Nucleotides: 095
Base pairs, nucleotide, nucleotide: 001095002094003093004092005091006090007089008087011026012025013024014023015022016021028044029043030042031041032040047069048068049067050066072086073085074084075083
Number, partner (000 for none) and nucleotide at each position: 001095g002094g003093a004092g005091g006090u007089g008087g009000a010000u011026g012025a013024g014023u015022c016021c017000c018000g019000g020000u021016g022015g023014g024013c025012u026011c027000c028044c029043c030042g031041g032040u033000c034000c035000u036000c037000a038000a039000a040032a041031c042030c043029g044028g045000u046000g047069g048068c049067g050066c051000g052000c053000c054000g055000c056000u057000g058000c059000g060000a061000g062000c063000g064000g065000g066050g067049c068048g069047c070000g071000g072086u073085g074084g075083g076000u077000u078000c079000g080000a081000c082000u083075c084074c085073c086072a087008c088000g089007c090006a091005c092004u093003u094002c095001c
Source information: Selenocysteine transfer RNA: a 95-nucleotide RNA sequence from Limnochorda pilosa. Its Rfam clan is "tRNA clan". NCBI's taxonomy places the organism under Bacteria, Bacillati, Limnochordia, Limnochordales, Limnochorda.